[Rfam]
RNA sequence: AAACAGAAUGAAACGUAUUCCAAAUGAGUUUAUAAAAUCACCCGGCAAAACUGGAAAAAGCGCAAAAAGCGUCGAUACUAAUGGUUAACAGUUCUGACAUAUCCCCCAAGUGUCGGAGCUGUCAGAGUAAACAUUUGUGCUUACUCUCGUAUCACUCCUAAUGGUCUUGACCCGAACUCCUCCCCCAGAGUUCGG
Numbered sequence: 001a002a003a004c005a006g007a008a009u010g011a012a013a014c015g016u017a018u019u020c021c022a023a024a025u026g027a028g029u030u031u032a033u034a035a036a037a038u039c040a041c042c043c044g045g046c047a048a049a050a051c052u053g054g055a056a057a058a059a060g061c062g063c064a065a066a067a068a069g070c071g072u073c074g075a076u077a078c079u080a081a082u083g084g085u086u087a088a089c090a091g092u093u094c095u096g097a098c099a100u101a102u103c104c105c106c107c108a109a110g111u112g113u114c115g116g117a118g119c120u121g122u123c124a125g126a127g128u129a130a131a132c133a134u135u136u137g138u139g140c141u142u143a144c145u146c147u148c149g150u151a152u153c154a155c156u157c158c159u160a161a162u163g164g165u166c167u168u169g170a171c172c173c174g175a176a177c178u179c180c181u182c183c184c185c186c187a188g189a190g191u192u193c194g195g
Stems, first nucleotide, its partner, number of pairs: 040165003088122004093117002096114001098112003124147007172195004177190003
A member of the RNA family "RgsA sRNA" from Halopseudomonas salegens, 195 nucleotides long. This small RNA (sRNA) was computationally identified in the genome of the opportunistic pathogen Pseudomonas aeruginosa and its expression verified by northern blot analysis. P16 sRNA appears to be conserved across several Pseudomonas species and Azotobacter vinelandii. In these species it is consistently located downstream of a predicted TatD deoxyribonuclease gene. P16 has a predicted Rho independent terminator at the 3' end but the function of P16 is unknown. It has been shown that this sRNA is transcribed from an RpoS-dependent promoter under positive, probably indirect GacA control in two Pseudomonas species. It was renamed RgsA (for regulation by GacA and stress).RpoS mRNA expression is repressed by RgsA during the exponential phase. The Hfq RNA chaperone is required for the repression. Taxonomically the source falls in Halopseudomonas (Bacteria, Pseudomonadati, Gammaproteobacteria, Pseudomonadaceae). Its family is annotated with response to oxidative stress, response to hydrogen peroxide and sRNA-mediated gene silencing in the Gene Ontology. The base pairs follow the family's consensus structure, which was predicted with RNAalifold.